[Rfam]
A member of the RNA family "Group II catalytic intron D1-D4-3" from Desulfosporosinus orientis, 173 nucleotides long. NCBI's taxonomy places the organism under Bacteria, Eubacteriales, Desulfitobacteriaceae, Desulfosporosinus, Desulfosporosinus orientis.
RNA sequence: UCUGUUGCGAAGCAGAAUCUAGAGGAAGCCAGCGGCAAAUCUCUGGCCCGAGGACCACGAAUCCUAGGCGAGGCUAGUAACAGUUGGAUGAGCUUGCAAACCAAAGCAAAGUCCUUGCUAUCGAAGGCUGUUGUUAGUAAAUGGGGCGGGUAGAUGGAGAGAAAGACAACGUU
Numbered sequence: 001u002c003u004g005u006u007g008c009g010a011a012g013c014a015g016a017a018u019c020u021a022g023a024g025g026a027a028g029c030c031a032g033c034g035g036c037a038a039a040u041c042u043c044u045g046g047c048c049c050g051a052g053g054a055c056c057a058c059g060a061a062u063c064c065u066a067g068g069c070g071a072g073g074c075u076a077g078u079a080a081c082a083g084u085u086g087g088a089u090g091a092g093c094u095u096g097c098a099a100a101c102c103a104a105a106g107c108a109a110a111g112u113c114c115u116u117g118c119u120a121u122c123g124a125a126g127g128c129u130g131u132u133g134u135u136a137g138u139a140a141a142u143g144g145g146g147c148g149g150g151u152a153g154a155u156g157g158a159g160a161g162a163a164a165g166a167c168a169a170c171g172u173u
Stems, first nucleotide, its partner, number of pairs: 001016006028173001030171001036165001040160006046151005062146005073138003077134001079132006086114004092107004